Nuclear RNase P: a 620-nucleotide RNA from Rhizoctonia solani. The family has 116 seed sequences and 3,848 matches in Rfam 15.1. By type it is a ribozyme. A search with the family's covariance model found it, with a score of 59 bits. Pairs were carried over by alignment from the consensus structure, which is taken from published work. The source organism's lineage runs through Eukaryota, Fungi, Dikarya, Cantharellales and Rhizoctonia. Ribonuclease P (RNase P) is a ubiquitous endoribonuclease, found in archaea, bacteria and eukarya as well as chloroplasts and mitochondria.

RNA sequence: AUAGCUCGAAAGCUGCAUUUGCUCGCCACGUACUCGCCGAUUGUCUCGGCUUCUCGCGAGCGGGCUAAGGUCUGAGCGUUCUAGUCCCCUUGUACCUGUGUCUAGCUGGCACCGACCGUAACAGGUCGAGCAGAGCAUCAGACAUGCGCUCGCUGUAGCUCGUAUCGCCCAGAGAUCCGCAAGGGGGGAGGGCAUAGCGCAGGUCGAGCUUGGAACCACUCUGCGGGGACCGAGCUGUUUCGUUAGCUUGUCCCUUUGUAACCUCUUUCACACCUAACGCACUAGUGUCGAGAACUAAUGCCCAACUUGCAUCGGGAAGUUGAGAUCAUGCGCCGUAAUCGCCGCUGUCGAGCGGUGUAUGGCCUGGAAGCCGCCUGGAUAGCUUCUAGGCUGACCGGACCGAGGAAGAAUAAGUGGCGCACUACCUGUUCUUGCUCCCCUCUCUCUGCGCUAGCGCCGCUGCGUCCCGCGGAGGUGAGAGGCCACGCUUGGUGGUCCGGUUGGUUUUGGUGAUCGAGGAGGUUGGGAUGAGUCCGAGCGGCUCUUUAGUUCACUUUGCGGCUCGCUUAUAUUCGCUUUUGGCGAUUUGCGAAACUCGAUUCAGACUACUCUUGGGCUGU
Numbered sequence: 001a002u003a004g005c006u007c008g009a010a011a012g013c014u015g016c017a018u019u020u021g022c023u024c025g026c027c028a029c030g031u032a033c034u035c036g037c038c039g040a041u042u043g044u045c046u047c048g049g050c051u052u053c054u055c056g057c058g059a060g061c062g063g064g065c066u067a068a069g070g071u072c073u074g075a076g077c078g079u080u081c082u083a084g085u086c087c088c089c090u091u092g093u094a095c096c097u098g099u100g101u102c103u104a105g106c107u108g109g110c111a112c113c114g115a116c117c118g119u120a121a122c123a124g125g126u127c128g129a130g131c132a133g134a135g136c137a138u139c140a141g142a143c144a145u146g147c148g149c150u151c152g153c154u155g156u157a158g159c160u161c162g163u164a165u166c167g168c169c170c171a172g173a174g175a176u177c178c179g180c181a182a183g184g185g186g187g188g189a190g191g192g193c194a195u196a197g198c199g200c201a202g203g204u205c206g207a208g209c210u211u212g213g214a215a216c217c218a219c220u221c222u223g224c225g226g227g228g229a230c231c232g233a234g235c236u237g238u239u240u241c242g243u244u245a246g247c248u249u250g251u252c253c254c255u256u257u258g259u260a261a262c263c264u265c266u267u268u269c270a271c272a273c274c275u276a277a278c279g280c281a282c283u284a285g286u287g288u289c290g291a292g293a294a295c296u297a298a299u300g301c302c303c304a305a306c307u308u309g310c311a312u313c314g315g316g317a318a319g320u321u322g323a324g325a326u327c328a329u330g331c332g333c334c335g336u337a338a339u340c341g342c343c344g345c346u347g348u349c350g351a352g353c354g355g356u357g358u359a360u361g362g363c364c365u366g367g368a369a370g371c372c373g374c375c376u377g378g379a380u381a382g383c384u385u386c387u388a389g390g391c392u393g394a395c396c397g398g399a400c401c402g403a404g405g406a407a408g409a410a411u412a413a414g415u416g417g418c419g420c421a422c423u424a425c426c427u428g429u430u431c432u433u434g435c436u437c438c439c440c441u442c443u444c445u446c447u448g449c450g451c452u453a454g455c456g457c458c459g460c461u462g463c464g465u466c467c468c469g470c471g472g473a474g475g476u477g478a479g480a481g482g483c484c485a486c487g488c489u490u491g492g493u494g495g496u497c498c499g500g501u502u503g504g505u506u507u508u509g510g511u512g513a514u515c516g517a518g519g520a521g522g523u524u525g526g527g528a529u530g531a532g533u534c535c536g537a538g539c540g541g542c543u544c545u546u547u548a549g550u551u552c553a554c555u556u557u558g559c560g561g562c563u564c565g566c567u568u569a570u571a572u573u574c575g576c577u578u579u580u581g582g583c584g585a586u587u588u589g590c591g592a593a594a595c596u597c598g599a600u601u602c603a604g605a606c607u608a609c610u611c612u613u614g615g616g617c618u619g620u
Stems, first nucleotide, its partner, number of pairs: 001620004009613002014561001021061005036050005072604005084230004098112005113128005130224006148209003563592004569586001